[Rfam]
About this RNA
This 110-nucleotide RNA sequence from Nitratireductor indicus belongs to the Rfam family "Rhizobiales sRNA Atu_At1". The source organism's lineage runs through Bacteria, Pseudomonadota, Alphaproteobacteria, Hyphomicrobiales and Nitratireductor indicus. The family's RNA type in Rfam is small RNA. A search with the family's covariance model found it, with a score of 75 bits.

RNA sequence: GAGCCGCCCGUGUCAACCGGGCAUGACGGCAAGGAAUACAGGGACGAUUUUCCCGGUUUCCCGCCCUGGCAACAGCGAAUGGGCAUACGCCUUCCUAUCCCGUCCGGGCG
Numbered sequence: 001g002a003g004c005c006g007c008c009c010g011u012g013u014c015a016a017c018c019g020g021g022c023a024u025g026a027c028g029g030c031a032a033g034g035a036a037u038a039c040a041g042g043g044a045c046g047a048u049u050u051u052c053c054c055g056g057u058u059u060c061c062c063g064c065c066c067u068g069g070c071a072a073c074a075g076c077g078a079a080u081g082g083g084c085a086u087a088c089g090c091c092u093u094c095c096u097a098u099c100c101c102g103u104c105c106g107g108g109c110g
Stems, first nucleotide, its partner, number of pairs: 006109004011023004025104003028100002033095004039068005045063002069084002073082001